Shown here is a 150-nucleotide sequence from Streptococcus uberis, a member of the family "Listeria sRNA rli38". The source organism's lineage runs through Bacteria, Lactobacillales, Streptococcaceae, Streptococcus and Streptococcus uberis. It is annotated as a small RNA. It scores 65 bits against the family's covariance model. The family's consensus secondary structure was predicted with RNAalifold.
RNA sequence: GUUACUCUUAAAUAAGAAGCACAUAGCAAUUUGAGAGCGGAAGCCCGAUUUACCAGUCUUUUAGAGCUUAUAGCGAUUUAGAGAAACUGAUAAAUUGAUUUGGUUUCCUGCCCAAAAUCCUGCCAAAAAAACUUUGGCAGGAUUUUUGUU
Numbered sequence: 001g002u003u004a005c006u007c008u009u010a011a012a013u014a015a016g017a018a019g020c021a022c023a024u025a026g027c028a029a030u031u032u033g034a035g036a037g038c039g040g041a042a043g044c045c046c047g048a049u050u051u052a053c054c055a056g057u058c059u060u061u062u063a064g065a066g067c068u069u070a071u072a073g074c075g076a077u078u079u080a081g082a083g084a085a086a087c088u089g090a091u092a093a094a095u096u097g098a099u100u101u102g103g104u105u106u107c108c109u110g111c112c113c114a115a116a117a118u119c120c121u122g123c124c125a126a127a128a129a130a131a132c133u134u135u136g137g138c139a140g141g142a143u144u145u146u147u148g149u150u
Base pairs, nucleotide, nucleotide: 010106011105012104050093051092052091054089055088056087059085061083062082065079115146116145117144118142119141120140121139122138123137124136125135126134127133